A member of the RNA family "SAM riboswitch aptamer (S box leader)" from Staphylococcus simulans, 112 nucleotides long. Rfam links the family to the GO term regulation of gene expression.
RNA sequence: AUCUUAUCCAGAGAGGCGGAGGGACAGGCCCUGCGAAGCCUCGGCAACAGGAUUAAUUAUGAAGAUUAAUUACUGUGCCAAUUCCUACAGUGAAACACUGUGAAGAUGAGAC
Numbered sequence: 001a002u003c004u005u006a007u008c009c010a011g012a013g014a015g016g017c018g019g020a021g022g023g024a025c026a027g028g029c030c031c032u033g034c035g036a037a038g039c040c041u042c043g044g045c046a047a048c049a050g051g052a053u054u055a056a057u058u059a060u061g062a063a064g065a066u067u068a069a070u071u072a073c074u075g076u077g078c079c080a081a082u083u084c085c086u087a088c089a090g091u092g093a094a095a096c097a098c099u100g101u102g103a104a105g106a107u108g109a110g111a112c
Base pairs, nucleotide, nucleotide: 002111003110004109005108006107007106008105013042014041015040016039017038021031022030023029026086027085028084043079044078045077046076048075049074051071052070053069054068055067056066057065083104088100089099090098091097092096

The match comes from Rfam's covariance-model search (83 bits).